[Rfam]
RNA sequence: GAGUUCACAUCAGUGGCGAGCUUAAGGAGAUUAUCUCCGAAGGCAUAGGGAAACCAAGUGCCCGCAGCCUAGUUUCUAGGCGAGGGGCAGGGUCUGUCAGGGCCUGAAGCCACUGAUGUGAGGCUAGAAACCGGGCGAUCUAGUCCGGGGCAGGCUGAAGGUGGGGGAAACCCCACUGGAGGGCCGAAUAGGGGUUCUGACGUGCAAUUCGUUCCCUUGACCUCGGACUAGGGGCAAAAGACCAAUCUAGCCCGGUGAUAGCUAGUU
Numbered sequence: 001g002a003g004u005u006c007a008c009a010u011c012a013g014u015g016g017c018g019a020g021c022u023u024a025a026g027g028a029g030a031u032u033a034u035c036u037c038c039g040a041a042g043g044c045a046u047a048g049g050g051a052a053a054c055c056a057a058g059u060g061c062c063c064g065c066a067g068c069c070u071a072g073u074u075u076c077u078a079g080g081c082g083a084g085g086g087g088c089a090g091g092g093u094c095u096g097u098c099a100g101g102g103c104c105u106g107a108a109g110c111c112a113c114u115g116a117u118g119u120g121a122g123g124c125u126a127g128a129a130a131c132c133g134g135g136c137g138a139u140c141u142a143g144u145c146c147g148g149g150g151c152a153g154g155c156u157g158a159a160g161g162u163g164g165g166g167g168a169a170a171c172c173c174c175a176c177u178g179g180a181g182g183g184c185c186g187a188a189u190a191g192g193g194g195u196u197c198u199g200a201c202g203u204g205c206a207a208u209u210c211g212u213u214c215c216c217u218u219g220a221c222c223u224c225g226g227a228c229u230a231g232g233g234g235c236a237a238a239a240g241a242c243c244a245a246u247c248u249a250g251c252c253c254g255g256u257g258a259u260a261g262c263u264a265g266u267u
Base pairs, nucleotide, nucleotide: 005121006120007119008118009117010116011115012114013113014112015111016110017109020044021043022042023041026038027037028036029035048055049054060088061087062086063085067081068080069079070078091104092103093102094101124265125264127262131255132254133253134252135251136250140231141230142229143228144227145226146225147224148223149222150221151219153185154184155183156182160177161176162175163174164173165172166171191216192215193214194213197211199210200209233243234242
The record is a 267-nucleotide part of an RNA from Sulfolobus acidocaldarius, which matches "Archaeal large subunit ribosomal RNA" in Rfam. The family's consensus secondary structure is taken from published work. The literature on the family includes a 2001 paper in Science by Yusupov et al., "Crystal structure of the ribosome at 5.5 A resolution". Rfam's curators put it in the seed alignment.